[Rfam]
RNA sequence: UGGUGAGGUAGAGGCGCGAUAAGCAAGAGUAACUGACGAAAGGGUGAUUCCGUUUGAUUGUCAGCCAAAGGCUUAAUCGCCGAAGUGAGAGAAGAGUAUCGAACUCUCUUGCUGGGGUUGUUUCCGAAAGGGACAACACUGCCAUAGUCUAUUGUGUUGUUAAACUAUGGAGCGCUACUGUGGGG
Numbered sequence: 001u002g003g004u005g006a007g008g009u010a011g012a013g014g015c016g017c018g019a020u021a022a023g024c025a026a027g028a029g030u031a032a033c034u035g036a037c038g039a040a041a042g043g044g045u046g047a048u049u050c051c052g053u054u055u056g057a058u059u060g061u062c063a064g065c066c067a068a069a070g071g072c073u074u075a076a077u078c079g080c081c082g083a084a085g086u087g088a089g090a091g092a093a094g095a096g097u098a099u100c101g102a103a104c105u106c107u108c109u110u111g112c113u114g115g116g117g118u119u120g121u122u123u124c125c126g127a128a129a130g131g132g133a134c135a136a137c138a139c140u141g142c143c144a145u146a147g148u149c150u151a152u153u154g155u156g157u158u159g160u161u162a163a164a165c166u167a168u169g170g171a172g173c174g175c176u177a178c179u180g181u182g183g184g185g
Base pairs, nucleotide, nucleotide: 007179008178009177010176011175016080017079018078019077020076022074023073033064034063035062036061037060038059039058084113085112086111087110088109089108090107091106092105114140115139117137118136119135120134121133122132123131124130142170143169144168145167146166147165148164